Description:
Rfam assigns this 127-nucleotide RNA from Bacillus thermotolerans to the family "PyrR binding site".

[Rfam]
RNA sequence: AAGACCUUUAAAUACAGUCCCGUGAGGCUGAGAAGGUAGCGGAUUAUAGCACAAUUGGAGGAGUAGUGUAUUCUUCUACGCUGUGCACAGCUGUCCUCUCGUCUUGGUGGCGAGAGGAUUUUUUUAU
Numbered sequence: 001a002a003g004a005c006c007u008u009u010a011a012a013u014a015c016a017g018u019c020c021c022g023u024g025a026g027g028c029u030g031a032g033a034a035g036g037u038a039g040c041g042g043a044u045u046a047u048a049g050c051a052c053a054a055u056u057g058g059a060g061g062a063g064u065a066g067u068g069u070a071u072u073c074u075u076c077u078a079c080g081c082u083g084u085g086c087a088c089a090g091c092u093g094u095c096c097u098c099u100c101g102u103c104u105u106g107g108u109g110g111c112g113a114g115a116g117g118a119u120u121u122u123u124u125u126a127u
Base pairs, nucleotide, nucleotide: 004037005036006035007034008033009032015030016029017028018027019026049086050085051084052083053082055080058077060075061074089123090122093119094118095117096116097115098114099113100112101111102110
Rfam links the family to the GO terms pyrimidine nucleobase biosynthetic process and pyrimidine nucleobase transport. Taxonomically the source falls in Bacillus (Bacteria, Bacilli, Caryophanales, Bacillaceae). The family's consensus secondary structure is taken from published work. The literature on the family includes a 2001 paper in Nucleic Acids Res by Bonner et al., "Molecular recognition of pyr mRNA by the Bacillus subtilis attenuation regulatory protein PyrR".